The record is a 96-nucleotide RNA sequence, which matches "wcaG RNA" in Rfam.
By type it is a cis-regulatory element.
RNA sequence: UAAGGUUUCUUGCUUCCUUAAAGAGCAAGUGGUGCGGAUGGGGUUACCCCGCCUGGUUUCCAAUUUCCAGUUAAAGAAUUGGUGGCGAGCCUGAAU
Numbered sequence: 001u002a003a004g005g006u007u008u009c010u011u012g013c014u015u016c017c018u019u020a021a022a023g024a025g026c027a028a029g030u031g032g033u034g035c036g037g038a039u040g041g042g043g044u045u046a047c048c049c050c051g052c053c054u055g056g057u058u059u060c061c062a063a064u065u066u067c068c069a070g071u072u073a074a075a076g077a078a079u080u081g082g083u084g085g086c087g088a089g090c091c092u093g094a095a096u
Base pairs, nucleotide, nucleotide: 009029010028011027012026013025014024016023039051040050041049042048043047053070054069055068056067060082061081062080063079064078065077